[Rfam]
RNA sequence: GGGUUGUGCUCAGAGUAUGGAGCCUGAAGCAAUGGCUCCUGCUUACACCAGACCCAACAGGAAUCUGGGUUAUUGUGACAAGGGGCACAAAACUCAUGGCCUUCCUCUGAGCAAGUACCCUACACGU
Number, nucleotide and partner (000 for none) at each position: 001g000002g055003g054004u000005u052006g000007u050008g049009c000010u000011c000012a000013g044014a043015g042016u041017a040018u000019g000020g039021a000022g036023c035024c034025u000026g000027a000028a000029g000030c000031a000032a000033u000034g024035g023036c022037u000038c000039c020040u017041g016042c015043u014044u013045a000046c000047a000048c000049c008050a007051g000052a005053c000054c003055c002056a000057a000058c000059a000060g000061g000062a000063a000064u000065c000066u000067g120068g119069g118070u117071u000072a000073u000074u113075g112076u111077g000078a000079c109080a108081a000082g102083g101084g100085g000086c098087a097088c000089a000090a094091a000092a000093c000094u090095c000096a000097u087098g086099g000100c084101c083102u082103u000104c000105c000106u000107c000108u080109g079110a000111g076112c075113a074114a000115g000116u000117a070118c069119c068120c067121u000122a000123c000124a000125c000126g000127u000